Shown here is a 102-nucleotide RNA from Colobus angolensis, a member of the family "Mitochondrial DNA control region secondary structure A". The organism belongs to Colobus angolensis, within Eukaryota. Pairs were carried over by alignment from the consensus structure, which is taken from published work. It is annotated as an antisense RNA. A search with the family's covariance model found it, with a score of 68 bits.
[Rfam]
RNA sequence: UAUUCUAAUGGAGCAUCAACUUUAAGUACAACUUAAGUAUGGAUCCGCCCCGUAAUUCUAUGUACAUCGUGCAUUACUGCUGGCCAACAUGAAUAUUAUAUA
Numbered sequence: 001u002a003u004u005c006u007a008a009u010g011g012a013g014c015a016u017c018a019a020c021u022u023u024a025a026g027u028a029c030a031a032c033u034u035a036a037g038u039a040u041g042g043a044u045c046c047g048c049c050c051c052g053u054a055a056u057u058c059u060a061u062g063u064a065c066a067u068c069g070u071g072c073a074u075u076a077c078u079g080c081u082g083g084c085c086a087a088c089a090u091g092a093a094u095a096u097u098a099u100a101u102a
Stems, first nucleotide, its partner, number of pairs: 006092001008090003013084001017079002022036006038055001040052003060074005